Rfam assigns this 378-nucleotide sequence from Pedobacter rhizosphaerae to the family "Bacterial RNase P class A".
It is annotated as a ribozyme.

[Rfam]
RNA sequence: AAUGCAGGUUGUUCUAUCGCUGUUUCGAGUAAAAUCGAGAGAGAGGAAAGUCCGGGCAACACAGGGCAUCUCGCUUUCUAACGGAAAGGGAUUUAGGAUUGAAAACCUGAAUUACGGAAUAGUGCAACAGAGAAUAUACCGCUUCGAUUUAUCGGAGUAAGGGUGAAAACGUGCGGUAAGAGCGCACGAGCAUUACAGGUGACUGUAAUGGUUUGUAAACCCCGAGAGUUGAAAGACCAAAUAGGCUAACGCAUGUAGGGCUGCCCGUCCGAUGUUAGUGGGUAGGUCGUUAGAGAUAAAUGGCAACAUUUAUAGUGGAUUAAUGAUAGAAAUUCCGUUUACGGAACACAGAACCCGGCUUAUAGACCUGCAUUUUUU
Numbered sequence: 001a002a003u004g005c006a007g008g009u010u011g012u013u014c015u016a017u018c019g020c021u022g023u024u025u026c027g028a029g030u031a032a033a034a035u036c037g038a039g040a041g042a043g044a045g046g047a048a049a050g051u052c053c054g055g056g057c058a059a060c061a062c063a064g065g066g067c068a069u070c071u072c073g074c075u076u077u078c079u080a081a082c083g084g085a086a087a088g089g090g091a092u093u094u095a096g097g098a099u100u101g102a103a104a105a106c107c108u109g110a111a112u113u114a115c116g117g118a119a120u121a122g123u124g125c126a127a128c129a130g131a132g133a134a135u136a137u138a139c140c141g142c143u144u145c146g147a148u149u150u151a152u153c154g155g156a157g158u159a160a161g162g163g164u165g166a167a168a169a170c171g172u173g174c175g176g177u178a179a180g181a182g183c184g185c186a187c188g189a190g191c192a193u194u195a196c197a198g199g200u201g202a203c204u205g206u207a208a209u210g211g212u213u214u215g216u217a218a219a220c221c222c223c224g225a226g227a228g229u230u231g232a233a234a235g236a237c238c239a240a241a242u243a244g245g246c247u248a249a250c251g252c253a254u255g256u257a258g259g260g261c262u263g264c265c266c267g268u269c270c271g272a273u274g275u276u277a278g279u280g281g282g283u284a285g286g287u288c289g290u291u292a293g294a295g296a297u298a299a300a301u302g303g304c305a306a307c308a309u310u311u312a313u314a315g316u317g318g319a320u321u322a323a324u325g326a327u328a329g330a331a332a333u334u335c336c337g338u339u340u341a342c343g344g345a346a347c348a349c350a351g352a353a354c355c356c357g358g359c360u361u362a363u364a365g366a367c368c369u370g371c372a373u374u375u376u377u378u
Stems, first nucleotide, its partner, number of pairs: 001374010011363001012331007020043002023040006048361003052358005057231004064266004069227005074088005089115001090113008116222002122220002124216003139162002141158007170188006190212001191210008235288004245279006258270004296313007
Dot-bracket structure: ((((((((((((((((((.((.((((((......)))))).))....[[[.[[[[[((((...[[[[.((((((((((.....)))))(((((((((........)))))))).)((....(((((............(((((((((....)))))))..)).......((((((.......)))))).(((((((((....)))))))).).)))..)))))))))))))...((((......((((((.......((((.]]]]))))...)))))).....)))).......(((((((....)))))))...........)))))))......................]]]]]]]].).))))))))))....
Source information
Taxonomically the source falls in Pedobacter (Bacteria, Pseudomonadati, Bacteroidota, Sphingobacteriia).